A member of the RNA family "Potassium channel RNA editing signal" from Allacma fusca, 114 nucleotides long. The family's consensus secondary structure is taken from published work. The source organism's lineage runs through Eukaryota, Protostomia, Allotriocarida, Symphypleona and Allacma.
[Rfam]
RNA sequence: GUUGGCUACGGCGAUGCGGUGCCGCGUGGUGUCUGGGGCAAGGUCAUAGGAUCCCUUUGCGCCAUUACUGGUGUCCUUACUUUGGCUCUACCCGUCCCUGUGAUGGUAUCCAAU
Numbered sequence: 001g002u003u004g005g006c007u008a009c010g011g012c013g014a015u016g017c018g019g020u021g022c023c024g025c026g027u028g029g030u031g032u033c034u035g036g037g038g039c040a041a042g043g044u045c046a047u048a049g050g051a052u053c054c055c056u057u058u059g060c061g062c063c064a065u066u067a068c069u070g071g072u073g074u075c076c077u078u079a080c081u082u083u084g085g086c087u088c089u090a091c092c093c094g095u096c097c098c099u100g101u102g103a104u105g106g107u108a109u110c111c112a113a114u
Base pairs, nucleotide, nucleotide: 001114002113004111005110007108008107009106011104014101015100016099018097019096021095022094037077038076040074049063050062
Dot-bracket structure: ((.((.(((.(..(((.((.((..............((.(........((...........))..........).))................)))).)))..).))).)).))